[Rfam]
RNA sequence: CCUUCCAAAACAUGUCGCAGCAUGACCCAUCUCGAGAUAGUCGGUGGAGUAGAGCACUGAUUGGAGGGACCUGGGGAGAAAUCCCUACCCCUCUUGUCAAACUCCGAACCCACCGGCGUCGUAGACAGGUGGAGUCUGGGCUACUGGGGUAAGCUUGUAGUCCGCGAGGGCAACAACCCGGACCGUGGUUAAGGUCCCCAAGUGUCGGCUAAGUGUUAUUCAAAGGGUGUCCCAAGCCCUAGACAGCUGGUAGGUUAGCUUAGAAGCAGCUAUCCUUUAAAGAGUGCGUAACAGCUCACCAGUCGAGGUUUGGGGCCCCGAAAAUGGACGGGGCUCAAGCCGACCACCGAUACCAUGGAGCACCGCGAGGUGAUCUGUUAGGAAGGCGUUGCGCUCGGGCAGAAGCUGGGCUGCGAAGUCCAGUGGACCGUGCGGAAACGAAAAU
Dot-bracket structure: ((((((....(((((....))))).(((((((...(((.((((((((....(((....(((.((((((...((((((....)))))).)))))).)))...)).)....)))))))))))......)))))).)...(((((((.((.......)))))))))....(((......)))...(((((((...(((......(.((((((...............(((.((((((((((.......(((((.(((..(((.........)))..)))(...)(...((......)).).)))))...)))))))))))))...................))))))))))...)))))))((((((....))))..))....))))))(.((.(((.(((......((((((((....))))))))...))).))).))..).....
Numbered sequence: 001c002c003u004u005c006c007a008a009a010a011c012a013u014g015u016c017g018c019a020g021c022a023u024g025a026c027c028c029a030u031c032u033c034g035a036g037a038u039a040g041u042c043g044g045u046g047g048a049g050u051a052g053a054g055c056a057c058u059g060a061u062u063g064g065a066g067g068g069a070c071c072u073g074g075g076g077a078g079a080a081a082u083c084c085c086u087a088c089c090c091c092u093c094u095u096g097u098c099a100a101a102c103u104c105c106g107a108a109c110c111c112a113c114c115g116g117c118g119u120c121g122u123a124g125a126c127a128g129g130u131g132g133a134g135u136c137u138g139g140g141c142u143a144c145u146g147g148g149g150u151a152a153g154c155u156u157g158u159a160g161u162c163c164g165c166g167a168g169g170g171c172a173a174c175a176a177c178c179c180g181g182a183c184c185g186u187g188g189u190u191a192a193g194g195u196c197c198c199c200a201a202g203u204g205u206c207g208g209c210u211a212a213g214u215g216u217u218a219u220u221c222a223a224a225g226g227g228u229g230u231c232c233c234a235a236g237c238c239c240u241a242g243a244c245a246g247c248u249g250g251u252a253g254g255u256u257a258g259c260u261u262a263g264a265a266g267c268a269g270c271u272a273u274c275c276u277u278u279a280a281a282g283a284g285u286g287c288g289u290a291a292c293a294g295c296u297c298a299c300c301a302g303u304c305g306a307g308g309u310u311u312g313g314g315g316c317c318c319c320g321a322a323a324a325u326g327g328a329c330g331g332g333g334c335u336c337a338a339g340c341c342g343a344c345c346a347c348c349g350a351u352a353c354c355a356u357g358g359a360g361c362a363c364c365g366c367g368a369g370g371u372g373a374u375c376u377g378u379u380a381g382g383a384a385g386g387c388g389u390u391g392c393g394c395u396c397g398g399g400c401a402g403a404a405g406c407u408g409g410g411c412u413g414c415g416a417a418g419u420c421c422a423g424u425g426g427a428c429c430g431u432g433c434g435g436a437a438a439c440g441a442a443a444a445u
Stems, first nucleotide, its partner, number of pairs: 001386006011024005026134001027132006036120003040117008052105001053103002059098003063094006072087006138163007146156002168179003183358007193348003202345001204344006225319003229316010246303005252276003257271003277281001282297001286295002359376002361372004387440001389437002392434003396430003405424008